A member of the RNA family "THF (Tetrahydrofolate) riboswitch aptamer" from Anaerococcus nagyae, 92 nucleotides long. It scores 63 bits against the family's covariance model. Rfam links the family to the GO term tetrahydrofolate metabolic process.

RNA sequence: AUCAGAGUAGAUAGAAAGCAUUAAGUGUUAAGAAAUGGGUUGUUGUUCUUAAACGAAGCAUAUCGCUAUGAUUUUCUAUCGCAACCGCUGCC
Dot-bracket structure: ..(((....((((((((((((...((.(((((((...[[[[[...)))))))))..(((.....)))))).))))))))).]]]]].)))..